This 137-nucleotide RNA sequence from Nannospalax galili belongs to the Rfam family "Small nucleolar RNA SNORA55". Rfam 15.1 lists 1,476 matches to the family in 616 species. Gene Ontology terms of the family: nucleolus and RNA processing. Lineage of the source: Eukaryota > Chordata > Craniata > Teleostomi > Nannospalax. By type it is an H/ACA-box small nucleolar RNA. Rfam's curators write: ACA55 is a member of the H/ACA class of snoRNA that guide the sites of modification of uridines to pseudouridines. Pairs were carried over by alignment from the consensus structure, which was predicted with PFOLD.
RNA sequence: GCACUCGAAUCUUUCCCAUGCCUGCUGCCUGGUGCUGGUCUGGGGACAGACAGUAGUGCUACACUAUGAGCAGAGGGUAUCCAGACAGGCUGCUUUCCAUUUGUCUUGGGGCCCGUCUCUAUAGCGCCACCACAUUU
Numbered sequence: 001g002c003a004c005u006c007g008a009a010u011c012u013u014u015c016c017c018a019u020g021c022c023u024g025c026u027g028c029c030u031g032g033u034g035c036u037g038g039u040c041u042g043g044g045g046a047c048a049g050a051c052a053g054u055a056g057u058g059c060u061a062c063a064c065u066a067u068g069a070g071c072a073g074a075g076g077g078u079a080u081c082c083a084g085a086c087a088g089g090c091u092g093c094u095u096u097c098c099a100u101u102u103g104u105c106u107u108g109g110g111g112c113c114c115g116u117c118u119c120u121a122u123a124g125c126g127c128c129a130c131c132a133c134a135u136u137u
Stems, first nucleotide, its partner, number of pairs: 001059005013046006021038002070130001073127001075125001083118004088113003097109003